Record summary: Shown here is a 99-nucleotide sequence from Desulfoluna spongiiphila, a member of the family "Purine riboswitch aptamer". Gene Ontology term of the family: purine nucleobase biosynthetic process.
RNA sequence: CUCUUUCACAACCAACCACCCCAUAUAAUCCUGAUGACAUGGGUCAGGAGUCUCUACCGGAAGGCCGUCCAUCCGACUAUGGGAGUGCAAGAAAAGCCG
Numbered sequence: 001c002u003c004u005u006u007c008a009c010a011a012c013c014a015a016c017c018a019c020c021c022c023a024u025a026u027a028a029u030c031c032u033g034a035u036g037a038c039a040u041g042g043g044u045c046a047g048g049a050g051u052c053u054c055u056a057c058c059g060g061a062a063g064g065c066c067g068u069c070c071a072u073c074c075g076a077c078u079a080u081g082g083g084a085g086u087g088c089a090a091g092a093a094a095a096g097c098c099g
Base pairs, nucleotide, nucleotide: 020083021082022081023080024079025078029049030048031047032046033045034044035043058075059074060073061072063070064069